Shown here is a 95-nucleotide RNA from Hasllibacter halocynthiae, a member of the family "Glycine riboswitch aptamer". The match comes from Rfam's covariance-model search (48 bits). The family has 44 seed sequences and 9,425 matches in Rfam 15.1. The pairing is the family consensus, mapped onto this sequence. The organism belongs to Hasllibacter, within Bacteria.
[Rfam]
RNA sequence: CAGCGACGGCCGGGAGAGCGCCCCACGGGAAAGAGGGGCCGCCGAAGGAGCAACCGCCCCGGAAACUCUCAGGUGCCGAGGACCGGCCGCCGCGU
Numbered sequence: 001c002a003g004c005g006a007c008g009g010c011c012g013g014g015a016g017a018g019c020g021c022c023c024c025a026c027g028g029g030a031a032a033g034a035g036g037g038g039c040c041g042c043c044g045a046a047g048g049a050g051c052a053a054c055c056g057c058c059c060c061g062g063a064a065a066c067u068c069u070c071a072g073g074u075g076c077c078g079a080g081g082a083c084c085g086g087c088c089g090c091c092g093c094g095u
Stems, first nucleotide, its partner, number of pairs: 007089007020039004041074003044070002048068003054062002
Dot-bracket structure: ......(((((((......((((............)))).(((((..(((...((.....))...))))).)))........)))))))......